[Rfam]
Source information
This 195-nucleotide RNA sequence from Flexivirga oryzae belongs to the Rfam family "c-di-AMP riboswitch aptamer (ydaO/yuaA leader)". Lineage of the source: Bacteria > Actinomycetota > Actinomycetes > Micrococcales > Flexivirga.
Nucleotides: 195
Stems, first nucleotide, its partner, number of pairs: 011180004018055009056175006066092002093160003101137002140154004
Number, partner (000 for none) and nucleotide at each position: 001000c002000g003000g004000a005000a006000g007000g008000c009000a010000a011180c012179g013178c014177c015000u016000a017000g018055u019054c020053c021052u022051g023050c024049c025048a026047g027000u028000c029000g030000c031000c032000c033000g034000g035000g036000u037000g038000a039000g040000c041000a042000a043000c044000c045000g046000c047026c048025u049024g050023g051022c052021a053020g054019g055018a056175g057174c058173g059172g060171g061170g062000g063000a064000c065000c066092c067091a068000c069000a070000u071000u072000g073000g074000g075000c076000g077000a078000c079000g080000c081000a082000a083000g084000u085000c086000g087000u088000c089000c090000u091067u092066g093160g094159g095158g096000c097000g098000a099000a100000g101137u102136c103000g104000a105000g106000g107000c108000u109000g110000c111000a112000g113000c114000a115000c116000c117000g118000c119000g120000g121000g122000g123000a124000u125000u126000g127000c128000u129000g130000c131000a132000c133000c134000g135000a136102g137101a138000c139000c140154g141153g142152g143151c144000a145000u146000c147000u148000u149000c150000g151143g152142c153141c154140c155000g156000a157000g158095c159094c160093c161000g162000a163000c164000a165000g166000c167000u168000g169000a170061c171060c172059u173058c174057g175056u176000a177014g178013g179012c180011g181000a182000c183000g184000g185000a186000g187000a188000g189000g190000u191000u192000u193000u194000u195000c
Record summary:
Gene Ontology terms of the family: cyclic-di-AMP binding and regulation of gene expression.